[Rfam]
RNA sequence: AGGUAAUUCAUAGCGCCAGAACUCGCGGGAACGAUUUGGAUCAUUUGGAUCGGAGGCAACGAGUUGACGAGGUGAAGGUGUUCGAAACAUUCGGCGGGGACCUUCCGGCAUCGAUGUAUGCCGUUAAGCGGGAAAGCAAACAUGUCUGGGCGACUGGACAAACAAGAUUCCAGCAACAUUGAAA
Number, nucleotide and partner (000 for none) at each position: 001a000002g000003g000004u000005a000006a000007u000008u000009c000010a000011u000012a000013g000014c000015g000016c000017c000018a000019g000020a065021a064022c063023u062024c061025g060026c000027g000028g000029g000030a000031a000032c000033g000034a000035u000036u000037u000038g000039g000040a000041u000042c000043a000044u000045u000046u000047g000048g000049a000050u000051c000052g000053g000054a000055g000056g000057c000058a000059a000060c025061g024062a023063g022064u021065u020066g000067a000068c000069g000070a000071g000072g000073u000074g105075a104076a103077g102078g101079u000080g000081u000082u094083c093084g092085a091086a000087a000088c000089a000090u000091u085092c084093g083094g082095c000096g000097g000098g000099g000100a000101c078102c077103u076104u075105c074106c123107g122108g121109c120110a119111u118112c000113g000114a000115u000116g000117u000118a111119u110120g109121c108122c107123g106124u000125u000126a000127a000128g174129c173130g000131g171132g170133a169134a168135a000136g000137c000138a000139a000140a000141c000142a000143u160144g159145u158146c157147u156148g155149g154150g000151c000152g000153a000154c149155u148156g147157g146158a145159c144160a143161a000162a000163c000164a000165a000166g000167a000168u134169u133170c132171c131172a000173g129174c128175a000176a000177c000178a000179u000180u000181g000182a000183a000184a000
Shown here is a 184-nucleotide RNA from Paenibacillus sp. GP183, a member of the family "glmS glucosamine-6-phosphate activated ribozyme aptamer". Pairs were carried over by alignment from the consensus structure, which is taken from published work. This entry contains a glucosamine-6-phosphate activated ribozyme that is found in the mRNA for GlmS. GlmS is an enzyme that uses fructose-6-phosphate and glutamine to generate glucosamine-6-phosphate. The ribozyme catalyses self cleavage of the glmS mRNA that is thought to regulate GlmS activity. The organism belongs to Paenibacillus, within Bacteria. The literature on the family includes a 2004 paper in Nature by Winkler et al., "Control of gene expression by a natural metabolite-responsive ribozyme".